Rfam assigns this 347-nucleotide RNA from Lachnospiraceae bacterium KHCPX20 to the family "Bacterial RNase P class A".
Rfam classes the family as a ribozyme.
The base pairs follow the family's consensus structure, which is taken from published work.
[Rfam]
RNA sequence: GAAGUAAGACACGUGAUCGCUGCUGCAAGUGCCGAAAGGCCGCAGGAGAGGAAAGUCCGGGCUUCAUAGGGCAGGAUGCCGGAUAACGUCCGGUGGAGGUGACUCCAAGGCCAGUGCAACAGAAAUAAACCGCCGGCUUCGGCCGGUAAGGGUGGAAAGGCGGUGUAAGAGACCACCGUCCUCUUGGUAACAAGAGGAGCCAUGUAAACCCCAUCCGAAGCAAGACCGCAUAGAAGCAGUGACGUUGCCCGCCAGCUUCAGGUAGGUCGCUUGAGAUUAGUGGUAACAUUAAUCCUGGAUAGAUGAUCACGCAAUGACAUAACCCGGCUUAUCGUUUUGCUUCCUUU
Numbered sequence: 001g002a003a004g005u006a007a008g009a010c011a012c013g014u015g016a017u018c019g020c021u022g023c024u025g026c027a028a029g030u031g032c033c034g035a036a037a038g039g040c041c042g043c044a045g046g047a048g049a050g051g052a053a054a055g056u057c058c059g060g061g062c063u064u065c066a067u068a069g070g071g072c073a074g075g076a077u078g079c080c081g082g083a084u085a086a087c088g089u090c091c092g093g094u095g096g097a098g099g100u101g102a103c104u105c106c107a108a109g110g111c112c113a114g115u116g117c118a119a120c121a122g123a124a125a126u127a128a129a130c131c132g133c134c135g136g137c138u139u140c141g142g143c144c145g146g147u148a149a150g151g152g153u154g155g156a157a158a159g160g161c162g163g164u165g166u167a168a169g170a171g172a173c174c175a176c177c178g179u180c181c182u183c184u185u186g187g188u189a190a191c192a193a194g195a196g197g198a199g200c201c202a203u204g205u206a207a208a209c210c211c212c213a214u215c216c217g218a219a220g221c222a223a224g225a226c227c228g229c230a231u232a233g234a235a236g237c238a239g240u241g242a243c244g245u246u247g248c249c250c251g252c253c254a255g256c257u258u259c260a261g262g263u264a265g266g267u268c269g270c271u272u273g274a275g276a277u278u279a280g281u282g283g284u285a286a287c288a289u290u291a292a293u294c295c296u297g298g299a300u301a302g303a304u305g306a307u308c309a310c311g312c313a314a315u316g317a318c319a320u321a322a323c324c325c326g327g328c329u330u331a332u333c334g335u336u337u338u339g340c341u342u343c344c345u346u347u
Stems, first nucleotide, its partner, number of pairs: 001343010011332001012311007020048002023045004053330003057327005062220004069250004074216005079093005094108001095106004109211002114209002116205003130151002132147006159177002162174003178200001179198008224268004233259005244252002275294008